[Rfam]
Rfam assigns this 110-nucleotide RNA sequence from Flagellimonas lutaonensis to the family "6S-Flavo RNA". The base pairs follow the family's consensus structure, which is taken from published work. A search with the family's covariance model found it, with a score of 92 bits.
Nucleotides: 110
Base pairs, nucleotide, nucleotide: 024090025089026088027087028086035081036080037079038078039077044072045071046070051066052065053064054063
Number, partner (000 for none) and nucleotide at each position: 001000a002000c003000u004000c005000a006000a007000c008000a009000g010000a011000u012000u013000u014000u015000u016000a017000a018000u019000u020000a021000a022000a023000a024090a025089g026088g027087g028086u029000g030000a031000g032000u033000u034000u035081a036080g037079g038078c039077u040000g041000u042000a043000a044072a045071a046070g047000c048000g049000g050000g051066c052065c053064c054063u055000a056000c057000u058000c059000g060000u061000a062000u063054a064053g065052g066051g067000a068000u069000a070046c071045u072044u073000g074000a075000g076000c077039a078038g079037u080036c081035u082000g083000g084000u085000a086028g087027c088026c089025c090024u091000a092000a093000a094000c095000c096000u097000g098000u099000c100000a101000c102000g103000a104000g105000g106000a107000g108000u109000u110000u